RNA: Vault RNA
Organism: Trichonephila clavata
RNA sequence: GCGCAGGCAUGGUUGAGUGGUUACUUCGGUAAACAAAUUGUUAUAGACCACUGGCGCAAUCCUGCGUUUUU
Numbered sequence: 001g002c003g004c005a006g007g008c009a010u011g012g013u014u015g016a017g018u019g020g021u022u023a024c025u026u027c028g029g030u031a032a033a034c035a036a037a038u039u040g041u042u043a044u045a046g047a048c049c050a051c052u053g054g055c056g057c058a059a060u061c062c063u064g065c066g067u068u069u070u071u
Stems, first nucleotide, its partner, number of pairs: 002066006012055004017051004026047002029044001